[Rfam]
RNA: Iron response element I
RNA sequence: CUGCGUCUUGCUUCAACAGUGUUUGAACCGAACAG
Number, nucleotide and partner (000 for none) at each position: 001c035002u034003g033004c000005g000006u031007c030008u000009u000010g028011c000012u027013u026014c025015a024016a023017c021018a000019g000020u000021g017022u000023u016024u015025g014026a013027a012028c010029c000030g007031a006032a000033c003034a002035g001